RNA: Archaeal RNase P
RNA sequence: GGCAGAGAGAGCUCGGCUCCCGUCGGUCCGAUUUCGGACUGACGAGGAAAGUCCCCCCACCGUCCGGACGGGUGACCGGGCGCAAGCCCGGAGUCGGAGACGGCUGGCUCUGGAACAGAGACGAGACCCCUCGGCCCGACCGAUGAGACGUGAGCGGCGGAGCGAUCCGCCGCCGGCACGAUCGGGAUACCCCGUUCGUGCGCGAACCGACCCGCGAGGGGAGGGAGCUAACCCGUCGAGGGAACGCAGUCGCGAGGUGAUCACCUCGCGUUGCGUGCGCGGCUCGCCGCGCUGACGGCCGAGAACGGAUGGAACGGCGAAUCCUCACCGGUGCAAGUCCGCGCCGCCAAGGUAGUCCGGACAGGGCGCGGCCGCUUAGCCGAAUGCCGAGACGAACAGAAGGGGGCUUACUCCUCUCAGCC
Dot-bracket structure: (((.(((((((((((((...((((((((((....))))))))))....[[[.[[[[[((((.[[[[[[..((((((((((......)))))(((((....)))))((...(.(.............((.(((((((................................................................................................................................................................)))))))...)).........).)..)))))))))))...(.(((((((..........]]]]]]...))))))).)............))))))..........]]]]]]]].)).))))).)))
Numbered sequence: 001g002g003c004a005g006a007g008a009g010a011g012c013u014c015g016g017c018u019c020c021c022g023u024c025g026g027u028c029c030g031a032u033u034u035c036g037g038a039c040u041g042a043c044g045a046g047g048a049a050a051g052u053c054c055c056c057c058c059a060c061c062g063u064c065c066g067g068a069c070g071g072g073u074g075a076c077c078g079g080g081c082g083c084a085a086g087c088c089c090g091g092a093g094u095c096g097g098a099g100a101c102g103g104c105u106g107g108c109u110c111u112g113g114a115a116c117a118g119a120g121a122c123g124a125g126a127c128c129c130c131u132c133g134g135c136c137c138g139a140c141c142g143a144u145g146a147g148a149c150g151u152g153a154g155c156g157g158c159g160g161a162g163c164g165a166u167c168c169g170c171c172g173c174c175g176g177c178a179c180g181a182u183c184g185g186g187a188u189a190c191c192c193c194g195u196u197c198g199u200g201c202g203c204g205a206a207c208c209g210a211c212c213c214g215c216g217a218g219g220g221g222a223g224g225g226a227g228c229u230a231a232c233c234c235g236u237c238g239a240g241g242g243a244a245c246g247c248a249g250u251c252g253c254g255a256g257g258u259g260a261u262c263a264c265c266u267c268g269c270g271u272u273g274c275g276u277g278c279g280c281g282g283c284u285c286g287c288c289g290c291g292c293u294g295a296c297g298g299c300c301g302a303g304a305a306c307g308g309a310u311g312g313a314a315c316g317g318c319g320a321a322u323c324c325u326c327a328c329c330g331g332u333g334c335a336a337g338u339c340c341g342c343g344c345c346g347c348c349a350a351g352g353u354a355g356u357c358c359g360g361a362c363a364g365g366g367c368g369c370g371g372c373c374g375c376u377u378a379g380c381c382g383a384a385u386g387c388c389g390a391g392a393c394g395a396a397c398a399g400a401a402g403g404g405g406g407c408u409u410a411c412u413c414c415u416c417u418c419a420g421c422c
Stems, first nucleotide, its partner, number of pairs: 001422003005418005010412002012391006021044010049409003053406005058333004063361006071329005076091005092105005106324002111320001113318001127308002130303007337373001339371007